[Rfam]
RNA sequence: AUUCCUUCUGUCGUGUAUCCUCGAUUCAUGUAACCUCAAAUGCU
Numbered sequence: 001a002u003u004c005c006u007u008c009u010g011u012c013g014u015g016u017a018u019c020c021u022c023g024a025u026u027c028a029u030g031u032a033a034c035c036u037c038a039a040a041u042g043c044u
Base pairs, nucleotide, nucleotide: 010025011024012023013022032044034042
RNA: Plastid-ycf3 group II-D1 intron
Organism: Ipomoea ramosissima